The record is an 88-nucleotide sequence, which matches "GA-cis RNA" in Rfam. Pairs were carried over by alignment from the consensus structure, which is taken from published work. Rfam classes the family as a small RNA.
RNA sequence: UAUAGAAGGAAACGAAAUGAAUGAAGUUCAUUUUCAAUAAAUGUUUCCGACGACUAGCCGCUGACCCAAGGGAGGGGCAAUACAUACU
Numbered sequence: 001u002a003u004a005g006a007a008g009g010a011a012a013c014g015a016a017a018u019g020a021a022u023g024a025a026g027u028u029c030a031u032u033u034u035c036a037a038u039a040a041a042u043g044u045u046u047c048c049g050a051c052g053a054c055u056a057g058c059c060g061c062u063g064a065c066c067c068a069a070g071g072g073a074g075g076g077g078c079a080a081u082a083c084a085u086a087c088u
Base pairs, nucleotide, nucleotide: 008048009047010046011045012044013043016032017031018030019029020028021027057078058077059076061074065071066070